[Rfam]
RNA sequence: CGGGGCUGGGGAAGCGGCCGCCGUGUGGUUGGAGCCUGGUGGCUCCUGCUCGUACCCGCCGGCCGCCCCCGUGCCCCAGAUUAACGCCCACGCGGACUGGGGUCCGGCCUGUGCAGUACCAGGUGUGAGCACUCACGGAGCGCUGUGGUGGUCAUGUAUGAUGCUGCAAACACCC
Numbered sequence: 001c002g003g004g005g006c007u008g009g010g011g012a013a014g015c016g017g018c019c020g021c022c023g024u025g026u027g028g029u030u031g032g033a034g035c036c037u038g039g040u041g042g043c044u045c046c047u048g049c050u051c052g053u054a055c056c057c058g059c060c061g062g063c064c065g066c067c068c069c070c071g072u073g074c075c076c077c078a079g080a081u082u083a084a085c086g087c088c089c090a091c092g093c094g095g096a097c098u099g100g101g102g103u104c105c106g107g108c109c110u111g112u113g114c115a116g117u118a119c120c121a122g123g124u125g126u127g128a129g130c131a132c133u134c135a136c137g138g139a140g141c142g143c144u145g146u147g148g149u150g151g152u153c154a155u156g157u158a159u160g161a162u163g164c165u166g167c168a169a170a171c172a173c174c175c
Stems, first nucleotide, its partner, number of pairs: 003076004008070003016064004020059002023056001025055002027050003031046001033044003087102003090098001110170001112168007120160002126154003130150004136145003
Rfam assigns this 175-nucleotide sequence from Nothocercus julius to the family "Small Cajal body specific RNA 16". The literature on the family includes a 2002 paper in EMBO J by Darzacq et al., "Cajal body-specific small nuclear RNAs: a novel class of 2'-O-methylation and pseudouridylation guide RNAs". The family's RNA type in Rfam is small Cajal body RNA. The base pairs follow the family's consensus structure, which was predicted with RNAfold. scaRNAs are a specific class of small nuclear RNAs which localise to the Cajal bodies and guide the modification of RNA polymerase II transcribed spliceosomal RNAs U1, U2, U4, U5 and U12. ACA47 belongs to the H/ACA box class of guide RNAs as it has the predicted hairpin-hinge-hairpin-tail structure, the conserved H/ACA-box motifs and is found associated with GAR1. ACA47 is predicted to guide the pseudouridylation of residue U5 of the U1 spliceosomal snRNA. Taxonomically the source falls in Nothocercus (Eukaryota, Craniata, Euteleostomi, Coelurosauria).